[Rfam]
RNA sequence: AUCCAAGUGCAUGGGCAUUACGCAUAACAGUGAGGAUUCGUCCGAGUUUGCGUUUUUGCUAGUUGAAAACUACAACUAUAUUGACGCUCCAGUUGGUCGUUGGAUCGGCUGGGAGUUUUUGGCACCAAUCUCCCUUCACGAGACACAACUUCCCUUCAUUG
Dot-bracket structure: ...................(((((.(((.....(((....)))..))))))))..................................(((((((((((....)))))))))))............((((............................))))
This 161-nucleotide RNA from Cryomyces minteri belongs to the Rfam family "U4 spliceosomal RNA". U4 small nuclear RNA (U4 snRNA) is a component of the major U2-dependent spliceosome. It is annotated as a spliceosomal small nuclear RNA. The family has 177 seed sequences and 32,178 matches in Rfam 15.1. The family's consensus secondary structure is taken from published work. Its family is annotated with spliceosomal tri-snRNP complex assembly and U4 snRNP in the Gene Ontology.